[Rfam]
The family of this 118-nucleotide sequence from Phytophthora sojae is "U5 spliceosomal RNA". U5 RNA is a component of both types of known spliceosome. Lineage of the source: Eukaryota > Sar > Peronosporomycetes > Peronosporales > Phytophthora. A reference for the family is Zwieb (1997), "The uRNA database", Nucleic Acids Res.
RNA sequence: UUCCGCAAAGUUAAUUUCAUUCGCAUCAAUCUUUCGCCUUUUACUAAAGAUUGCCGUGGAAUUGACUUACUAAAUGCGGCUUCAACCAAAUUUCUGGAUCCCUCCUUGUGAGGGGAAC
Numbered sequence: 001u002u003c004c005g006c007a008a009a010g011u012u013a014a015u016u017u018c019a020u021u022c023g024c025a026u027c028a029a030u031c032u033u034u035c036g037c038c039u040u041u042u043a044c045u046a047a048a049g050a051u052u053g054c055c056g057u058g059g060a061a062u063u064g065a066c067u068u069a070c071u072a073a074a075u076g077c078g079g080c081u082u083c084a085a086c087c088a089a090a091u092u093u094c095u096g097g098a099u100c101c102c103u104c105c106u107u108g109u110g111a112g113g114g115g116a117a118c
Stems, first nucleotide, its partner, number of pairs: 003079004009067011027053008097118001099117001101115004